[Rfam]
RNA: mir-31 microRNA precursor family
Organism: Atractosteus spatula
RNA sequence: ACAUGGAGAGAAGGCAAGAUGUUGGCAUAGCUGUUGAGUUCAGUGACCUGCUAUGCUGUCAUAUUGCCCUGUUUCCUAUCC
Numbered sequence: 001a002c003a004u005g006g007a008g009a010g011a012a013g014g015c016a017a018g019a020u021g022u023u024g025g026c027a028u029a030g031c032u033g034u035u036g037a038g039u040u041c042a043g044u045g046a047c048c049u050g051c052u053a054u055g056c057u058g059u060c061a062u063a064u065u066g067c068c069c070u071g072u073u074u075c076c077u078a079u080c081c
Stems, first nucleotide, its partner, number of pairs: 005076005011070001013068005019062003023058009